[Rfam]
RNA sequence: CACACGAUGCAUCAGCGUGCAACCCGUUGAUUGAAAUUGAACCGUCCUGUUAUCGAAAGAUAGGCAGAAGAUACGAAAUGUGUGACAGCAUGGGAAGUAAAGGCAGACCGUGGUUCCCUUGAGUAUCUUA
Numbered sequence: 001c002a003c004a005c006g007a008u009g010c011a012u013c014a015g016c017g018u019g020c021a022a023c024c025c026g027u028u029g030a031u032u033g034a035a036a037u038u039g040a041a042c043c044g045u046c047c048u049g050u051u052a053u054c055g056a057a058a059g060a061u062a063g064g065c066a067g068a069a070g071a072u073a074c075g076a077a078a079u080g081u082g083u084g085a086c087a088g089c090a091u092g093g094g095a096a097g098u099a100a101a102g103g104c105a106g107a108c109c110g111u112g113g114u115u116c117c118c119u120u121g122a123g124u125a126u127c128u129u130a
Stems, first nucleotide, its partner, number of pairs: 005113001007111003044108002047106004051062004069129001070127005078091004092118005
Record summary:
EGFOA RNA: a 130-nucleotide RNA. It is one of the family's seed sequences. The family's RNA type in Rfam is small RNA.